[Rfam]
RNA sequence: AUCAUGUGGAGCGGCGCGAGGGAACUGGCCUGAUGACCGCCCGGCAACCUGACCGACAAGGUGCCAAUUCCAGCCCGCAAGGGAACACAUGAG
Numbered sequence: 001a002u003c004a005u006g007u008g009g010a011g012c013g014g015c016g017c018g019a020g021g022g023a024a025c026u027g028g029c030c031u032g033a034u035g036a037c038c039g040c041c042c043g044g045c046a047a048c049c050u051g052a053c054c055g056a057c058a059a060g061g062u063g064c065c066a067a068u069u070c071c072a073g074c075c076c077g078c079a080a081g082g083g084a085a086c087a088c089a090u091g092a093g
Stems, first nucleotide, its partner, number of pairs: 002092005011042001013041004020031003025073004043065004048061002050058002069087001075083002
SAM riboswitch aptamer (S box leader): a 93-nucleotide RNA sequence from Desulfatitalea alkaliphila. The source organism's lineage runs through Bacteria, Pseudomonadati, Thermodesulfobacteriota, Desulfobacteria and Desulfatitalea.